[Rfam]
RNA sequence: UUGGUUAGAACUCAACACAGGUUGGCGCCGUAACGACGCCGACACAUAGGCUCGCCACGCCGGCAGCGAGCCCACCAACGGCAGGAAAACCCUGCCCGGCCCCACGCGGGGCCGAAGGAUAUCUAGACAGUCAAC
Numbered sequence: 001u002u003g004g005u006u007a008g009a010a011c012u013c014a015a016c017a018c019a020g021g022u023u024g025g026c027g028c029c030g031u032a033a034c035g036a037c038g039c040c041g042a043c044a045c046a047u048a049g050g051c052u053c054g055c056c057a058c059g060c061c062g063g064c065a066g067c068g069a070g071c072c073c074a075c076c077a078a079c080g081g082c083a084g085g086a087a088a089a090c091c092c093u094g095c096c097c098g099g100c101c102c103c104a105c106g107c108g109g110g111g112c113c114g115a116a117g118g119a120u121a122u123c124u125a126g127a128c129a130g131u132c133a134a135c
Base pairs, nucleotide, nucleotide: 021043022042023041024040025039026038027037029035049072050071051070052069053068054067055066080096081095082094083093084092085091098113099112100111101110102109103108
Dot-bracket structure: ....................(((((((.(.....).))))))).....(((((((..........))))))).......((((((.....)))))).((((((....))))))......................